This 110-nucleotide RNA sequence from Caenimonas sedimenti belongs to the Rfam family "Glycine riboswitch aptamer". This family represents the bacterial glycine riboswitch. NCBI's taxonomy places the organism under Bacteria, Pseudomonadati, Burkholderiales, Comamonadaceae, Caenimonas.

RNA sequence: CGUCACCUUGCUGGAGAGAGGGAAAUUGGGGUCAGAUUCCAAUUUCUCCACCGAAGGAGCAAACCCCGCAAGGGGUGAAUCUCUCAGGUAAAGCGGACAGCAGGGGCCAG
Numbered sequence: 001c002g003u004c005a006c007c008u009u010g011c012u013g014g015a016g017a018g019a020g021g022g023a024a025a026u027u028g029g030g031g032u033c034a035g036a037u038u039c040c041a042a043u044u045u046c047u048c049c050a051c052c053g054a055a056g057g058a059g060c061a062a063a064c065c066c067c068g069c070a071a072g073g074g075g076u077g078a079a080u081c082u083c084u085c086a087g088g089u090a091a092a093g094c095g096g097a098c099a100g101c102a103g104g105g106g107c108c109a110g
Stems, first nucleotide, its partner, number of pairs: 006105008020048012050089003053085002057083003063076002
Dot-bracket structure: .....((((((((......((((((((((((.....)))))))))))).(((((..(((...((..........))....))))).)))........)))))))).....